[Rfam]
RNA sequence: GUCGGUCUUCGGUAGUGGCCUAUCGGCAGUGAGUUGACGCCGUCGGGCUUCGAUCGAUGACCGCC
Numbered sequence: 001g002u003c004g005g006u007c008u009u010c011g012g013u014a015g016u017g018g019c020c021u022a023u024c025g026g027c028a029g030u031g032a033g034u035u036g037a038c039g040c041c042g043u044c045g046g047g048c049u050u051c052g053a054u055c056g057a058u059g060a061c062c063g064c065c
Stems, first nucleotide, its partner, number of pairs: 001065001003063005009057005017049003021045001024042004
Dot-bracket structure: (.(((((.(((((...(((.(..((((...........))))..).)))...))))).))))).)
RNA: Actino-pnp RNA